[Rfam]
RNA sequence: GGCGAUACACGGUCGUUGGAAUAAGCCCAUCGGACCCGGGGGCGGUACCCGGCGCCUCCACCAGAACCGAUCCGGACGGGUCGGCUGUGGCGGGGGCGAAACAGGAUCGACGAGGGUGUAAAGAACGCGCCGUCGCCCGGCAUGGUACCGCCGUUAUCGGGCCGUACAAUAGUUGCGAACGACAACUAUGCUCCGGUUGCUCAGGCCGCGUAA
Numbered sequence: 001g002g003c004g005a006u007a008c009a010c011g012g013u014c015g016u017u018g019g020a021a022u023a024a025g026c027c028c029a030u031c032g033g034a035c036c037c038g039g040g041g042g043c044g045g046u047a048c049c050c051g052g053c054g055c056c057u058c059c060a061c062c063a064g065a066a067c068c069g070a071u072c073c074g075g076a077c078g079g080g081u082c083g084g085c086u087g088u089g090g091c092g093g094g095g096g097c098g099a100a101a102c103a104g105g106a107u108c109g110a111c112g113a114g115g116g117u118g119u120a121a122a123g124a125a126c127g128c129g130c131c132g133u134c135g136c137c138c139g140g141c142a143u144g145g146u147a148c149c150g151c152c153g154u155u156a157u158c159g160g161g162c163c164g165u166a167c168a169a170u171a172g173u174u175g176c177g178a179a180c181g182a183c184a185a186c187u188a189u190g191c192u193c194c195g196g197u198u199g200c201u202c203a204g205g206c207c208g209c210g211u212a213a
Base pairs, nucleotide, nucleotide: 001137002136003135004134005133014127015126016125017124026116027115028114030113031112032111036052037051038050039049040048053098054097055096056095057094058093059092138153139152140151141150
Dot-bracket structure: (((((........((((........(((.(((...(((((.......)))))(((((((................................)))))))............)))))).......)))).....)))))((((........))))............................................................
This 213-nucleotide sequence from Tepidamorphus gemmatus belongs to the Rfam family "permuted transfer-messenger RNA". The base pairs follow the family's consensus structure, which is taken from published work. A search with the family's covariance model found it, with a score of 146 bits. Gene Ontology term of the family: RNA catabolic process. Lineage of the source: Bacteria > Pseudomonadati > Alphaproteobacteria > Hyphomicrobiales > Tepidamorphus. It is annotated as a non-coding RNA gene.